[Rfam]
RNA: MIR159 microRNA precursor family
Organism: Oryza rufipogon
RNA sequence: GGUUAUGAAGUGGAGCUCCUUUCGUUCCAAUGAAAGGUUUAUCUGAAGGGUGAUACAGCUGCUUGUUCAUGGUUCCCACUAUUCUAUCUCAUAGGAAAAGAGAUAGGCUUGUGGUUUGCAUGACCAAGGAGCCGAAUCAACUCCUUGCUAACCACUCUUUGGAUUGAAGGGAGCUCUGCAUCUUGAUCCC
Numbered sequence: 001g002g003u004u005a006u007g008a009a010g011u012g013g014a015g016c017u018c019c020u021u022u023c024g025u026u027c028c029a030a031u032g033a034a035a036g037g038u039u040u041a042u043c044u045g046a047a048g049g050g051u052g053a054u055a056c057a058g059c060u061g062c063u064u065g066u067u068c069a070u071g072g073u074u075c076c077c078a079c080u081a082u083u084c085u086a087u088c089u090c091a092u093a094g095g096a097a098a099a100g101a102g103a104u105a106g107g108c109u110u111g112u113g114g115u116u117u118g119c120a121u122g123a124c125c126a127a128g129g130a131g132c133c134g135a136a137u138c139a140a141c142u143c144c145u146u147g148c149u150a151a152c153c154a155c156u157c158u159u160u161g162g163a164u165u166g167a168a169g170g171g172a173g174c175u176c177u178g179c180a181u182c183u184u185g186a187u188c189c190c
Base pairs, nucleotide, nucleotide: 013176014175015174016173017172018171019170020169023166024165026163027162028161029160036153059131060130062128063127064126068122069121070120071119076114